[Rfam]
RNA sequence: UUUGGGAUAUGAUGCUAAUAUACAAACAGAUUAUCUAAGGCUUUGGCUAUGCUGAUUAUAUGUAUUUGCACGUCAGUCUGAUCCCAAA
Numbered sequence: 001u002u003u004g005g006g007a008u009a010u011g012a013u014g015c016u017a018a019u020a021u022a023c024a025a026a027c028a029g030a031u032u033a034u035c036u037a038a039g040g041c042u043u044u045g046g047c048u049a050u051g052c053u054g055a056u057u058a059u060a061u062g063u064a065u066u067u068g069c070a071c072g073u074c075a076g077u078c079u080g081a082u083c084c085c086a087a088a
Base pairs, nucleotide, nucleotide: 001088002087003086004085005084006083007082
A member of the RNA family "Small nucleolar RNA Z122" from Cephalotus follicularis, 88 nucleotides long. Rfam links the family to the GO terms nucleolus and RNA processing. Pairs were carried over by alignment from the consensus structure, which was predicted with PFOLD.